[Rfam]
RNA: Small nucleolar RNA SNORA41
Organism: Glareola pratincola
RNA sequence: CCCCACAGCUACUGGUCUGGAACUGUUCACAAUUGUAGCAGUUGCAGGAUUCCCUCUGUGGAAAAGAAACUGUUACAUAGUGUUCAGCUCCUUCUCAGAUACUCUGAAAAGGAUCUCCUGUGUAACAAACAAUA
Numbered sequence: 001c002c003c004c005a006c007a008g009c010u011a012c013u014g015g016u017c018u019g020g021a022a023c024u025g026u027u028c029a030c031a032a033u034u035g036u037a038g039c040a041g042u043u044g045c046a047g048g049a050u051u052c053c054c055u056c057u058g059u060g061g062a063a064a065a066g067a068a069a070c071u072g073u074u075a076c077a078u079a080g081u082g083u084u085c086a087g088c089u090c091c092u093u094c095u096c097a098g099a100u101a102c103u104c105u106g107a108a109a110a111g112g113a114u115c116u117c118c119u120g121u122g123u124a125a126c127a128a129a130c131a132a133u134a
Stems, first nucleotide, its partner, number of pairs: 003061004017047003021043005075123005089113005095107002